The family of this 98-nucleotide RNA from Pseudoclavibacter endophyticus is "Glycine riboswitch aptamer".

Nucleotides: 098
Stems, first nucleotide, its partner, number of pairs: 006093001009090005020040006042079003045075002049073003057065001
Number, partner (000 for none) and nucleotide at each position: 001000c002000g003000a004000g005000c006093c007000c008000a009090c010089g011088c012087g013086g014000g015000a016000g017000a018000g019000a020040c021039c022038g023037c024036g025035c026000c027000g028000c029000a030000c031000u032000g033000c034000g035025g036024c037023g038022c039021g040020g041000c042079g043078c044077c045075g046074a047000a048000g049073g050072a051071g052000c053000a054000a055000g056000a057065c058000u059000c060000u061000c062000c063000c064000c065057g066000a067000g068000a069000a070000u071051c072050u073049c074046u075045c076000a077044g078043g079042c080000a081000c082000a083000a084000g085000a086013c087012c088011g089010c090009g091000a092000u093006g094000g095000g096000c097000g098000a